[Rfam]
eL15-Euryarchaeota ribosomal protein leader: a 53-nucleotide RNA sequence. By type it is a cis-regulatory leader.
RNA sequence: CGGGAUUCGUCCCGGGAUAGGAAUGUGGCUCAUCUACUGAGCUGAACCUGAAG
Numbered sequence: 001c002g003g004g005a006u007u008c009g010u011c012c013c014g015g016g017a018u019a020g021g022a023a024u025g026u027g028g029c030u031c032a033u034c035u036a037c038u039g040a041g042c043u044g045a046a047c048c049u050g051a052a053g
Base pairs, nucleotide, nucleotide: 001014002013003012004011005010019049020048021047027043028042029041030040031039